The record is a 47-nucleotide sequence from Drosophila virilis, which matches "Small nucleolar RNA R442" in Rfam. Gene Ontology terms of the family: nucleolus and RNA processing. The sequence is in the family's curated seed alignment. On this family, see Huang et al., RNA 2005: "Genome-wide analyses of two families of snoRNA genes from Drosophila melanogaster, demonstrating the extensive utilization of introns for coding of snoRNAs". The base pairs follow the family's consensus structure, which was predicted with WAR.
Nucleotides: 047
Base pairs, nucleotide, nucleotide: 006016007015008014017034018033019032020031
Number, partner (000 for none) and nucleotide at each position: 001000u002000g003000c004000a005000a006016g007015c008014c009000a010000g011000u012000u013000g014008g015007g016006c017034g018033u019032g020031a021000a022000u023000c024000a025000c026000g027000c028000u029000u030000g031020u032019c033018a034017u035000a036000g037000u038000u039000a040000c041000u042000c043000u044000g045000a046000g047000a